[Rfam]
RNA sequence: AUUGUCGAAUUCAAGAGACUUCGUAUAACGCCGGGGAUACGGCCUGGCAGUAUCUACCGGAUCGCCCCAAAUGGUCCGACUACGAGGUAGAACGCAAGCCUA
Numbered sequence: 001a002u003u004g005u006c007g008a009a010u011u012c013a014a015g016a017g018a019c020u021u022c023g024u025a026u027a028a029c030g031c032c033g034g035g036g037a038u039a040c041g042g043c044c045u046g047g048c049a050g051u052a053u054c055u056a057c058c059g060g061a062u063c064g065c066c067c068c069a070a071a072u073g074g075u076c077c078g079a080c081u082a083c084g085a086g087g088u089a090g091a092a093c094g095c096a097a098g099c100c101u102a
Base pairs, nucleotide, nucleotide: 018088019087020086021085022084023083024082025081030048031047032046033045034044035043058078059077060076061075062074063073064072
Dot-bracket structure: .................((((((((....((((((.......)))))).........(((((((.......)))))))..))))))))..............